[Rfam]
This 50-nucleotide RNA sequence from Echinimonas agarilytica belongs to the Rfam family "Guanidine-II riboswitch aptamer (mini-ykkC)". NCBI's taxonomy places the organism under Bacteria, Pseudomonadati, Pseudomonadota, Alteromonadales, Echinimonas. The base pairs follow the family's consensus structure, which is taken from published work. Simpler in structure and has fewer highly conserved nucleotide positions than the ykkC-yxkD leader. Despite this each of its two stem-loop structures directly bind free guanidine. Therefore, mini-ykkC RNA motif represents a distinct class of guanidine-sensing RNAs. Its crystal structure was also determined. A search with the family's covariance model found it, with a score of 37 bits.
RNA sequence: GACUAGGGACGACCCUAACCAAAGUCGUGGAAUGAAUCGGGACGACCCGA
Numbered sequence: 001g002a003c004u005a006g007g008g009a010c011g012a013c014c015c016u017a018a019c020c021a022a023a024g025u026c027g028u029g030g031a032a033u034g035a036a037u038c039g040g041g042a043c044g045a046c047c048c049g050a
Base pairs, nucleotide, nucleotide: 001020004017005016006015007014008013037050038049039048040047041046